[Rfam]
RNA sequence: AUAUUAAUUAAAUAGAAUAUAUGUAUAUCAUUGGCGAUAUGGGCCAAUAGUUUCUAGCUGUUAACCGUAAAUAAACAGGCUACAUAAAAAUCAUGAUUUUUU
Numbered sequence: 001a002u003a004u005u006a007a008u009u010a011a012a013u014a015g016a017a018u019a020u021a022u023g024u025a026u027a028u029c030a031u032u033g034g035c036g037a038u039a040u041g042g043g044c045c046a047a048u049a050g051u052u053u054c055u056a057g058c059u060g061u062u063a064a065c066c067g068u069a070a071a072u073a074a075a076c077a078g079g080c081u082a083c084a085u086a087a088a089a090a091u092c093a094u095g096a097u098u099u100u101u102u
Base pairs, nucleotide, nucleotide: 018088020086021085022084023083024082025081030048031047032046033045034044035043058078059077060076061075062074064072
Shown here is a 102-nucleotide RNA from Culicoidibacter larvae, a member of the family "Purine riboswitch aptamer".
It scores 74 bits against the family's covariance model.
Riboswitches are metabolite binding domains within certain messenger RNAs that serve as precision sensors for their corresponding targets. Allosteric rearrangement of mRNA structure is mediated by ligand binding, and this results in modulation of gene expression. A class of riboswitches that selectively recognises guanine and becomes saturated at concentrations as low as 5 nM. In Bacillus subtilis, this mRNA motif is located on at least five separate transcriptional units that together encode 17 genes that are mostly involved in purine transport and purine nucleotide biosynthesis. It has also been shown that some members of this family are specific for adenine instead. Hence this family are termed purine riboswitches.
The base pairs follow the family's consensus structure, which is taken from published work.